[Rfam]
RNA sequence: UUGCAGGUGGUGUUUAUUGUAUGAUGUUAAGUGCAGUAAAUCCUUGAAGGAUGGUGCGCGCAAUACCUGACUUCCGCCACAGGCAA
Numbered sequence: 001u002u003g004c005a006g007g008u009g010g011u012g013u014u015u016a017u018u019g020u021a022u023g024a025u026g027u028u029a030a031g032u033g034c035a036g037u038a039a040a041u042c043c044u045u046g047a048a049g050g051a052u053g054g055u056g057c058g059c060g061c062a063a064u065a066c067c068u069g070a071c072u073u074c075c076g077c078c079a080c081a082g083g084c085a086a
Base pairs, nucleotide, nucleotide: 001086002085003084004083007080008079009078010077011076012075013040014039015038016037017036018035019034020033021032022031046074047073048072049071053067054066